[Rfam]
RNA sequence: AUGCCUUAAAGUUGUAAGGAAAGUAACAAUUCGGUGUGACACCCGAAACCCCACUGUUAACGUGAGAUGAAUUUUUAAGUGGGUAAAGGUUGCCCCUAAGGUGACUGGCCUCCUUUGCAGGAUGCCUGGGAGUCACCAACUGCCUG
Dot-bracket structure: ...(((((......)))))..........(((((........)))))..(.(((.......))).).............(((((..((.(.(...((.(((((.((.((.......)).)).))))).)).....).).)))))))

Annotation
The record is a 146-nucleotide RNA sequence from Ailuropoda melanoleuca, which matches "U12 minor spliceosomal RNA" in Rfam. The family's RNA type in Rfam is spliceosomal small nuclear RNA. Pairs were carried over by alignment from the consensus structure. The literature on the family includes a 1997 paper in Trends Biochem Sci by Tarn and Steitz, "Pre-mRNA splicing: the discovery of a new spliceosome doubles the challenge". The organism belongs to Ailuropoda, within Eukaryota.